[Rfam]
A member of the RNA family "mir-4891 microRNA precursor family" from Branchiostoma belcheri, 88 nucleotides long. The organism belongs to Branchiostoma, within Eukaryota.
Nucleotides: 088
Stems, first nucleotide, its partner, number of pairs: 002085004006077007014069007023061010034051004
Number, partner (000 for none) and nucleotide at each position: 001000u002085g003084g004083c005082u006077g007076u008075u009074u010073g011072g012071g013000a014069a015068g016067a017066u018065g019064a020063g021000c022000u023061g024060u025059u026058c027057u028056g029055c030054u031053a032052c033000g034051g035050c036049u037048g038000c039000g040000u041000g042000u043000c044000a045000g046000a047000c048037u049036a050035g051034c052032g053031u054030a055029g056028c057027a058026g059025g060024a061023c062000c063020c064019u065018c066017g067016u068015c069014u070000g071012c072011c073010c074009a075008a076007a077006c078000g079000u080000c081000u082005g083004g084003c085002c086000u087000c088000u
It is one of the family's seed sequences.